[Rfam]
RNA sequence: UACAAUUGUUUUUGUUAGUAUCGUAUAUGAUUGAAAAUAUGGUUCGAUUGUCUCUACCCUGGUGCCGUAAAUACUAGGACUAUGAUAUUUAAAAAUACAAAU
Numbered sequence: 001u002a003c004a005a006u007u008g009u010u011u012u013u014g015u016u017a018g019u020a021u022c023g024u025a026u027a028u029g030a031u032u033g034a035a036a037a038u039a040u041g042g043u044u045c046g047a048u049u050g051u052c053u054c055u056a057c058c059c060u061g062g063u064g065c066c067g068u069a070a071a072u073a074c075u076a077g078g079a080c081u082a083u084g085a086u087a088u089u090u091a092a093a094a095a096u097a098c099a100a101a102u
Base pairs, nucleotide, nucleotide: 018088019087020086021085022084023083024082025081029049030048031047032046033045034044035043058078059077060076061075062074063073064072
Shown here is a 102-nucleotide sequence from Candidatus Izimoplasma sp. ZiA1, a member of the family "Purine riboswitch aptamer".
The source organism's lineage runs through Bacteria, Mycoplasmatota, Mollicutes, Candidatus Izemoplasmataceae and Candidatus Izemoplasma.